[Rfam]
A member of the RNA family "Glycine riboswitch aptamer" from Acidocella sp. MX-AZ02, 99 nucleotides long. The source organism's lineage runs through Bacteria, Pseudomonadota, Alphaproteobacteria, Acetobacterales and Acidocella. On this family, see Babina et al., MBio 2017: "In Vivo Behavior of the Tandem Glycine Riboswitch in Bacillus subtilis".

RNA sequence: GAAGGACACUCUGGAAAGCCGGCGGGAGCCCCCGCCGCACCGACGGGGUCAAGGGUUUCACCACCCGAAUCUCUCAGGUCACAGGACAGAGGGGGGUCA
Numbered sequence: 001g002a003a004g005g006a007c008a009c010u011c012u013g014g015a016a017a018g019c020c021g022g023c024g025g026g027a028g029c030c031c032c033c034g035c036c037g038c039a040c041c042g043a044c045g046g047g048g049u050c051a052a053g054g055g056u057u058u059c060a061c062c063a064c065c066c067g068a069a070u071c072u073c074u075c076a077g078g079u080c081a082c083a084g085g086a087c088a089g090a091g092g093g094g095g096g097u098c099a
Base pairs, nucleotide, nucleotide: 007093009091010090011089012088013087020037021036022035023034039079040078041077042075043074046073047072048071053066054065055064056063